Bacterial large subunit ribosomal RNA: a 372-nucleotide part of an RNA from Aliterella atlantica. A search with the family's covariance model found it, with a score of 2712 bits.

[Rfam]
RNA sequence: GAAAACAUUGGUGAGAAUCCAAUGCCCCGAAACCCUAAGGGUUCCUCCGGCAGGUUCGUCCGCGGAGGGUUAGUCAGGACCUAAGGCGAGGCCAAACGGCGUAGUCGAUGGACAACGGGUGAUUAAUCCCGUACUGAGUAUGGUUUGUGCAGAGGGACGGAGAAGGCGUAUGUUAGCCAGAUGUUGGUUACUGGUGCAAGUACUAAGGCGCUGAGGAGCGGCGAAAACGCUCUGAGCUAAGGUGCGAGUCCGAGCGUCUACGGACGCGAAGUAGCAAAGUCAAGCUUCCCAGAAAAGCUCCAAGCACGUUAAGCCACAUUCACCUGUACCCGAAACCGACACAGGUAGGGAGGUUGAGAAAACUAAGGGGCG
Numbered sequence: 001g002a003a004a005a006c007a008u009u010g011g012u013g014a015g016a017a018u019c020c021a022a023u024g025c026c027c028c029g030a031a032a033c034c035c036u037a038a039g040g041g042u043u044c045c046u047c048c049g050g051c052a053g054g055u056u057c058g059u060c061c062g063c064g065g066a067g068g069g070u071u072a073g074u075c076a077g078g079a080c081c082u083a084a085g086g087c088g089a090g091g092c093c094a095a096a097c098g099g100c101g102u103a104g105u106c107g108a109u110g111g112a113c114a115a116c117g118g119g120u121g122a123u124u125a126a127u128c129c130c131g132u133a134c135u136g137a138g139u140a141u142g143g144u145u146u147g148u149g150c151a152g153a154g155g156g157a158c159g160g161a162g163a164a165g166g167c168g169u170a171u172g173u174u175a176g177c178c179a180g181a182u183g184u185u186g187g188u189u190a191c192u193g194g195u196g197c198a199a200g201u202a203c204u205a206a207g208g209c210g211c212u213g214a215g216g217a218g219c220g221g222c223g224a225a226a227a228c229g230c231u232c233u234g235a236g237c238u239a240a241g242g243u244g245c246g247a248g249u250c251c252g253a254g255c256g257u258c259u260a261c262g263g264a265c266g267c268g269a270a271g272u273a274g275c276a277a278a279g280u281c282a283a284g285c286u287u288c289c290c291a292g293a294a295a296a297g298c299u300c301c302a303a304g305c306a307c308g309u310u311a312a313g314c315c316a317c318a319u320u321c322a323c324c325u326g327u328a329c330c331c332g333a334a335a336c337c338g339a340c341a342c343a344g345g346u347a348g349g350g351a352g353g354u355u356g357a358g359a360a361a362a363c364u365a366a367g368g369g370g371c372g
Stems, first nucleotide, its partner, number of pairs: 006024006025370004033350004039330002044068006053061002075326004080111002085106003089102001091100003115132005135322005141316005146306002152300003159288004165281003171276005176195005196250001200245004207238003215233005221228001254267005336345002352364004
Lineage of the source: Bacteria > Chroococcidiopsidales > Aliterellaceae > Aliterella > Aliterella atlantica.